[Rfam]
RNA sequence: GCAAUCUCGGAGAGUGAUUCUGGGGGAUACGCACAGUGACCAUUCAGGCUGAUUGGGACACUGCGUAGGGUAGGUAUUAAUGGCAUCCAGCCAUUGAUAGAUGGGAUACUGAUGUAACUGGCCGAACGGAACUGGCGAGGUUACAUGUUGAUGGGAAACCCAACA
Numbered sequence: 001g002c003a004a005u006c007u008c009g010g011a012g013a014g015u016g017a018u019u020c021u022g023g024g025g026g027a028u029a030c031g032c033a034c035a036g037u038g039a040c041c042a043u044u045c046a047g048g049c050u051g052a053u054u055g056g057g058a059c060a061c062u063g064c065g066u067a068g069g070g071u072a073g074g075u076a077u078u079a080a081u082g083g084c085a086u087c088c089a090g091c092c093a094u095u096g097a098u099a100g101a102u103g104g105g106a107u108a109c110u111g112a113u114g115u116a117a118c119u120g121g122c123c124g125a126a127c128g129g130a131a132c133u134g135g136c137g138a139g140g141u142u143a144c145a146u147g148u149u150g151a152u153g154g155g156a157a158a159c160c161c162a163a164c165a
Stems, first nucleotide, its partner, number of pairs: 006024006031066002034063005040056003075099010113145006
Description:
The family of this 165-nucleotide sequence from Vibrio agarilyticus is "DABA-DC-AT RNA". The family's RNA type in Rfam is cis-regulatory element. Lineage of the source: Bacteria > Pseudomonadati > Vibrionales > Vibrionaceae > Vibrio. The match comes from Rfam's covariance-model search (129 bits).